[Rfam]
RNA: PyrR binding site
RNA sequence: AAGACCUUUAAACACAGUCCCGUGAGGCUGGGAAGGUAGCGGAUGAUGCACUGGGAGAUUGUUCUUAUACCCUCCGUGUGCUCAAGUAUAUCUGUCCUCUCGUCUACACGGCGGGAGGAUUUUUUUA
Numbered sequence: 001a002a003g004a005c006c007u008u009u010a011a012a013c014a015c016a017g018u019c020c021c022g023u024g025a026g027g028c029u030g031g032g033a034a035g036g037u038a039g040c041g042g043a044u045g046a047u048g049c050a051c052u053g054g055g056a057g058a059u060u061g062u063u064c065u066u067a068u069a070c071c072c073u074c075c076g077u078g079u080g081c082u083c084a085a086g087u088a089u090a091u092c093u094g095u096c097c098u099c100u101c102g103u104c105u106a107c108a109c110g111g112c113g114g115g116a117g118g119a120u121u122u123u124u125u126u127a
Stems, first nucleotide, its partner, number of pairs: 004037006015030005049080003054075004060069003094120011